[Rfam]
RNA: SAM-I/IV (S-adenosyl methionine) riboswitch aptamer
RNA sequence: GCAAAGCAUCUGGAGCAGGGCUUCGGCCUUGGCCAACCUGCCCGCCCGGGUAAGGUGGUUCCCGAAUGGGGAUGCGGCCGAGUGGCAAUAAAACGGGGCACC
Dot-bracket structure: .....(((((......(((((....))))).(((..((((((..[[[[))).))).)))...........))))).(((....))).......]]]].....